[Rfam]
RNA sequence: UGGGCAGUAUCCUAAAGGAACUGCACCGUUAGUGUCAUACUAAAAUUAAAGGUAUCUGCCUAGAUCCGUUUAACGGACCGGGACAGAGGG
Numbered sequence: 001u002g003g004g005c006a007g008u009a010u011c012c013u014a015a016a017g018g019a020a021c022u023g024c025a026c027c028g029u030u031a032g033u034g035u036c037a038u039a040c041u042a043a044a045a046u047u048a049a050a051g052g053u054a055u056c057u058g059c060c061u062a063g064a065u066c067c068g069u070u071u072a073a074c075g076g077a078c079c080g081g082g083a084c085a086g087a088g089g090g
Stems, first nucleotide, its partner, number of pairs: 001028003004024005010019002056086003059082003063078001065077003